[Rfam]
RNA sequence: GGCGGAAUUGACCCCAGUAGGUGCGGGGAGCAGUCUUGAAAACUGUUGGUCGUGAUGAGCGGCUUGUGGGUUCGAGUCCUACUUCCGCC
Numbered sequence: 001g002g003c004g005g006a007a008u009u010g011a012c013c014c015c016a017g018u019a020g021g022u023g024c025g026g027g028g029a030g031c032a033g034u035c036u037u038g039a040a041a042a043c044u045g046u047u048g049g050u051c052g053u054g055a056u057g058a059g060c061g062g063c064u065u066g067u068g069g070g071u072u073c074g075a076g077u078c079c080u081a082c083u084u085c086c087g088c089c
Base pairs, nucleotide, nucleotide: 001089002088003087004086005085006084007083010082013028014027015026017024018023029047030046031045032044033043034042049063050062051061052060053059067081068080069079070078
Selenocysteine transfer RNA: an 89-nucleotide RNA from Dysosmobacter segnis. Pairs were carried over by alignment from the consensus structure, which is taken from published work. The family is grouped with related families in Rfam's "tRNA clan".